[Rfam]
RNA: Rhizobiales sRNA Atu_At1
Organism: Arsenicitalea aurantiaca
RNA sequence: AUGCGGCGCGUGUCAACCGGACGCGACGGCAUAGGGAACAGUGCGGUUUUUCCGGUUUCUCGCACUGGCCGACGAAUUGGCAGCCGAGCCCUUGUCCCGUCCGUGCC
Numbered sequence: 001a002u003g004c005g006g007c008g009c010g011u012g013u014c015a016a017c018c019g020g021a022c023g024c025g026a027c028g029g030c031a032u033a034g035g036g037a038a039c040a041g042u043g044c045g046g047u048u049u050u051u052c053c054g055g056u057u058u059c060u061c062g063c064a065c066u067g068g069c070c071g072a073c074g075a076a077u078u079g080g081c082a083g084c085c086g087a088g089c090c091c092u093u094g095u096c097c098c099g100u101c102c103g104u105g106c107c
Stems, first nucleotide, its partner, number of pairs: 006106004011023004025101003028097002033092004039067007068081003